Shown here is a 41-nucleotide RNA sequence from Providencia alcalifaciens, a member of the family "nuoG RNA". The base pairs follow the family's consensus structure, which is taken from published work. The source organism's lineage runs through Bacteria, Gammaproteobacteria, Enterobacterales, Providencia and Providencia alcalifaciens. The family's RNA type in Rfam is cis-regulatory element.

RNA sequence: GUAUUUAUGUUUAACGCCUGCUAACGCGGGCCUUUGGGAAG
Numbered sequence: 001g002u003a004u005u006u007a008u009g010u011u012u013a014a015c016g017c018c019u020g021c022u023a024a025c026g027c028g029g030g031c032c033u034u035u036g037g038g039a040a041g
Base pairs, nucleotide, nucleotide: 016031017030018029019028020027021026